RNA sequence: AAGACUAUACUUUCAGGGAUCAUUUCUAUAGUUCGUUACUAGAGAAGUUUCUCUGAACGUGUAGAGCACCCGAAACCACGAGGAGGAGGCGCAGCGUUCUCUCCUGAGCGUGAAGCCGGCUCUUGGUGUUGCUUCCGCAACUGCCUUUUGCCAUUGAUGAUCGUUCUUCUCUUCUUUUUAGGAGAGUAAGAGGGAGAGGACGCAGUCUGAGUGGU
Numbered sequence: 001a002a003g004a005c006u007a008u009a010c011u012u013u014c015a016g017g018g019a020u021c022a023u024u025u026c027u028a029u030a031g032u033u034c035g036u037u038a039c040u041a042g043a044g045a046a047g048u049u050u051c052u053c054u055g056a057a058c059g060u061g062u063a064g065a066g067c068a069c070c071c072g073a074a075a076c077c078a079c080g081a082g083g084a085g086g087a088g089g090c091g092c093a094g095c096g097u098u099c100u101c102u103c104c105u106g107a108g109c110g111u112g113a114a115g116c117c118g119g120c121u122c123u124u125g126g127u128g129u130u131g132c133u134u135c136c137g138c139a140a141c142u143g144c145c146u147u148u149u150g151c152c153a154u155u156g157a158u159g160a161u162c163g164u165u166c167u168u169c170u171c172u173u174c175u176u177u178u179u180a181g182g183a184g185a186g187u188a189a190g191a192g193g194g195a196g197a198g199g200a201c202g203c204a205g206u207c208u209g210a211g212u213g214g215u
Base pairs, nucleotide, nucleotide: 002040003039006035009032010031011030015027016026017025018024049065050064054061075215076214077213078212079211094203095202096201097200098199099198100197101196102195103194104193105192108164109163110162118152119151120150125145126144127143128141129140130139131138132137167189168188169186170185171184172183173182174181175180
Small nucleolar RNA U3: a 215-nucleotide RNA from Equus caballus. Clan: U3 clan. The organism belongs to Equus, within Eukaryota. Rfam links the family to the GO terms RNA processing and nucleolus. Rfam classes the family as a C/D-box small nucleolar RNA. The base pairs follow the family's consensus structure, which is taken from published work. On this family, see Speckmann et al., Mol Cell Biol 1999: "Nuclear retention elements of U3 small nucleolar RNA". About the family: Small nucleolar RNAs (snoRNAs) are involved in the processing and modification of rRNA in the nucleolus. There are two main classes of snoRNAs: the box C/D class, and the box H/ACA class. U3 snoRNA is a member of the box C/D class. Indeed, the box C/D element is a subset of the six short sequence elements found in all U3 snoRNAs, namely boxes A, A', B, C, C', and D. The U3 snoRNA secondary structure is characterised by a small 5' domain (with boxes A and A'), and a larger 3' domain (with boxes B, C, C', and D), the two domains being linked by a single-stranded hinge. Boxes B and C form the B/C motif, which appears to be exclusive to U3 snoRNAs, and boxes C' and D form the C'/D motif. The latter is functionally similar to the C/D motifs found in other snoRNAs. The 5' domain and the hinge region act as a pre-rRNA-binding domain. The 3' domain has conserved protein-binding sites. Both the box B/C and box C'/D motifs are sufficient for nuclear retention of U3 snoRNA. The box C'/D motif is also necessary for nucleolar localisation, stability and hyper-methylation of U3 snoRNA. Both box B/C and C'/D motifs are involved in specific protein interactions and are necessary for the rRNA processing functions of U3 snoRNA. It is one of the family's seed sequences.